RNA sequence: UGAUAUUAGGGUCAGAGGUCAGAAACCACGAUGUGCUUGCACAGGAGUGGUUUCCUGACUUCCUGACCCGCCCAAAUAUGAGCAUAAAAGUGAAGCGUCAGCUUCACGUUAUGCGAAUAUUGGGCAGGAUUGUGAGAGUGCGAAGCACGGAACAAUCCGUAUGAUAUCA
Numbered sequence: 001u002g003a004u005a006u007u008a009g010g011g012u013c014a015g016a017g018g019u020c021a022g023a024a025a026c027c028a029c030g031a032u033g034u035g036c037u038u039g040c041a042c043a044g045g046a047g048u049g050g051u052u053u054c055c056u057g058a059c060u061u062c063c064u065g066a067c068c069c070g071c072c073c074a075a076a077u078a079u080g081a082g083c084a085u086a087a088a089a090g091u092g093a094a095g096c097g098u099c100a101g102c103u104u105c106a107c108g109u110u111a112u113g114c115g116a117a118u119a120u121u122g123g124g125c126a127g128g129a130u131u132g133u134g135a136g137a138g139u140g141c142g143a144a145g146c147a148c149g150g151a152a153c154a155a156u157c158c159g160u161a162u163g164a165u166a167u168c169a
Base pairs, nucleotide, nucleotide: 001169002168003167004166005165006164007163010068011067012066013065016061017060018059019058020057021056022055023053024052025051026050027049028048029047032043033042034041035040072124073123075121076120077119078118079117082114083113084112085111090107091106092105093104094103095102096101127158128157129156130155131154132153133152138148139147140146141145
Shown here is a 169-nucleotide RNA sequence from Firmicutes bacterium CAG:194, a member of the family "Clostridiales-1 RNA". The organism belongs to Bacillota, within Bacteria. The family has 194 seed sequences and 1,172 matches in Rfam 15.1. It is annotated as a small RNA. The base pairs follow the family's consensus structure, which is taken from published work.